[Rfam]
RNA sequence: AAGCGUGUGCGAAGAGGUAUGAGAGGUGGUAGCCAUGGGGUCUCCACUGCAUACCAGAGUAACCGGAGAGACUUCGACAGCCCAGGCCAGCACAGUGCCUGCAGCUGCCACUCGACUUUCCUAUAUAU
Numbered sequence: 001a002a003g004c005g006u007g008u009g010c011g012a013a014g015a016g017g018u019a020u021g022a023g024a025g026g027u028g029g030u031a032g033c034c035a036u037g038g039g040g041u042c043u044c045c046a047c048u049g050c051a052u053a054c055c056a057g058a059g060u061a062a063c064c065g066g067a068g069a070g071a072c073u074u075c076g077a078c079a080g081c082c083c084a085g086g087c088c089a090g091c092a093c094a095g096u097g098c099c100u101g102c103a104g105c106u107g108c109c110a111c112u113c114g115a116c117u118u119u120c121c122u123a124u125a126u127a128u
Stems, first nucleotide, its partner, number of pairs: 010038001016033001018031003065121006080108002083101004
RNA: Small nucleolar RNA SNORA44